[Rfam]
RNA sequence: CAUGACCCGUCGCCGUACCCGCGGCGCGCGGGAGUGAACCGGGGAACCAAUCGACGGCGCUCACGCGCUGUCACGGGGUGAAUCCGCAGCACCGUGCGGUAGGGCCACCUUCUUCCGGCCCGAACCCGUCAGCUAACUCGGUAGGCGGUCAGGAAGAAGGGU
Numbered sequence: 001c002a003u004g005a006c007c008c009g010u011c012g013c014c015g016u017a018c019c020c021g022c023g024g025c026g027c028g029c030g031g032g033a034g035u036g037a038a039c040c041g042g043g044g045a046a047c048c049a050a051u052c053g054a055c056g057g058c059g060c061u062c063a064c065g066c067g068c069u070g071u072c073a074c075g076g077g078g079u080g081a082a083u084c085c086g087c088a089g090c091a092c093c094g095u096g097c098g099g100u101a102g103g104g105c106c107a108c109c110u111u112c113u114u115c116c117g118g119c120c121c122g123a124a125c126c127c128g129u130c131a132g133c134u135a136a137c138u139c140g141g142u143a144g145g146c147g148g149u150c151a152g153g154a155a156g157a158a159g160g161g162u
Stems, first nucleotide, its partner, number of pairs: 011147004019036001038142006048075001076127003084099004102121004